A member of the RNA family "CRISPR RNA direct repeat element" from Limnospira maxima, 37 nucleotides long.
Its family is annotated with defense response in the Gene Ontology.
Pairs were carried over by alignment from the consensus structure, which was predicted with WAR.

[Rfam]
RNA sequence: GUUUCCGUCCCCUUGCGGGGAAUGGGUUAGGAAAGCC
Number, nucleotide and partner (000 for none) at each position: 001g000002u000003u000004u000005c026006c025007g000008u021009c020010c019011c018012c017013u000014u000015g000016c000017g012018g011019g010020g009021a008022a000023u000024g000025g006026g005027u000028u000029a000030g000031g000032a000033a000034a000035g000036c000037c000